[Rfam]
RNA sequence: CCAGAGGGCCGGCCAGUCGCUCGUGGCUGCUUUUGCAGCUGCGGGAGGAAAGUCCGGGCUCCACGAUAUAUGGGUGCCGGAUAACUUCCGGCGAGGGUGACCUCAGGGACAGUGCAACAGAAAGCAGGUCGCGUUGGUUUCGGCUGCGUGACAUUGAAAGGGUGCGGUAAGAGCGCACCGCGGGACUGGCGACAGGACCGGCACGGUAAACCCCACCCGGAGCAAAACCAAAUAGGGGCGGCAAAUGGCGAUAUCGGCCUGCUGCCCGGGUUGGUUGCUGGAGCGGUGCAGCAAUGCAUCGCCGAGAUGAAUGGCUGGCUAUUCCGUUAUGCGGAUGGACAGAACCCGGCUUACAGGCCCUCUGGCAUU
Numbered sequence: 001c002c003a004g005a006g007g008g009c010c011g012g013c014c015a016g017u018c019g020c021u022c023g024u025g026g027c028u029g030c031u032u033u034u035g036c037a038g039c040u041g042c043g044g045g046a047g048g049a050a051a052g053u054c055c056g057g058g059c060u061c062c063a064c065g066a067u068a069u070a071u072g073g074g075u076g077c078c079g080g081a082u083a084a085c086u087u088c089c090g091g092c093g094a095g096g097g098u099g100a101c102c103u104c105a106g107g108g109a110c111a112g113u114g115c116a117a118c119a120g121a122a123a124g125c126a127g128g129u130c131g132c133g134u135u136g137g138u139u140u141c142g143g144c145u146g147c148g149u150g151a152c153a154u155u156g157a158a159a160g161g162g163u164g165c166g167g168u169a170a171g172a173g174c175g176c177a178c179c180g181c182g183g184g185a186c187u188g189g190c191g192a193c194a195g196g197a198c199c200g201g202c203a204c205g206g207u208a209a210a211c212c213c214c215a216c217c218c219g220g221a222g223c224a225a226a227a228c229c230a231a232a233u234a235g236g237g238g239c240g241g242c243a244a245a246u247g248g249c250g251a252u253a254u255c256g257g258c259c260u261g262c263u264g265c266c267c268g269g270g271u272u273g274g275u276u277g278c279u280g281g282a283g284c285g286g287u288g289c290a291g292c293a294a295u296g297c298a299u300c301g302c303c304g305a306g307a308u309g310a311a312u313g314g315c316u317g318g319c320u321a322u323u324c325c326g327u328u329a330u331g332c333g334g335a336u337g338g339a340c341a342g343a344a345c346c347c348g349g350c351u352u353a354c355a356g357g358c359c360c361u362c363u364g365g366c367a368u369u
Base pairs, nucleotide, nucleotide: 001365002364003363004362005361006360007359008358009357010356011354012319013318014317015316016315017314018313020045021044022043023042024041025040026039027038028037050352051351052350054349055348056347057346058345059222060221061220062219072218073217074216075215076214077091078090079089080088081087092106093104094103095102096101107213108212112211113210114207115206129153131149132148133147134146136144161179162178163177164176165175166174180202181200182199183198186195187194188193226276227275228274229273236267237266238265239264240263241262247259248258249257283302284301285300286299287298288297289296290295
RNA: Bacterial RNase P class A